[Rfam]
RNA sequence: AAGCUGGAGGAUGAGGAAUUGGUCUCCUAUAUUCUCACCGGCCUUGAUCAAGACUACGACUCGGUGGUGUUCGCGGUGGCGGCACGUGCCGAAACAAUCUCAGUUGGGGAGCUGUUCACCCAAUUGACAUCAUUCGAGU
Number, nucleotide and partner (000 for none) at each position: 001a000002a000003g000004c138005u137006g000007g135008a134009g000010g000011a000012u000013g000014a000015g000016g000017a000018a000019u000020u000021g000022g000023u000024c000025u000026c000027c000028u000029a000030u000031a000032u000033u000034c000035u000036c000037a000038c000039c000040g000041g000042c000043c000044u000045u000046g000047a000048u000049c000050a000051a000052g000053a000054c000055u000056a000057c000058g000059a000060c000061u000062c000063g000064g000065u000066g000067g000068u000069g000070u000071u000072c000073g000074c000075g000076g000077u000078g000079g000080c000081g000082g000083c000084a000085c000086g000087u000088g000089c107090c106091g105092a104093a000094a000095c000096a000097a000098u000099c000100u000101c000102a000103g000104u092105u091106g090107g089108g000109g000110a000111g000112c000113u000114g000115u000116u000117c000118a000119c000120c000121c000122a000123a000124u000125u000126g000127a000128c000129a000130u000131c000132a000133u000134u008135c007136g000137a005138g004139u000